About this RNA:
This 93-nucleotide RNA sequence from Candidatus Thiodictyon syntrophicum belongs to the Rfam family "Selenocysteine transfer RNA". Its family is annotated with triplet codon-amino acid adaptor activity in the Gene Ontology. Lineage of the source: Bacteria > Gammaproteobacteria > Chromatiales > Chromatiaceae > Thiodictyon. Pairs were carried over by alignment from the consensus structure, which is taken from published work.
RNA sequence: GGAAGGGCGUCGCUAUCCGGUGAGGCGGCCGGACUUCAAAUCCGGUUGGGGCCGUCAGGCGGUCCCGGGUGGGUUCGACUCCCACGCCCUUCC
Dot-bracket structure: (((((((((.((((.((....))))))((((((.......)))))).(((((.........)))))...((((.......)))))))))))))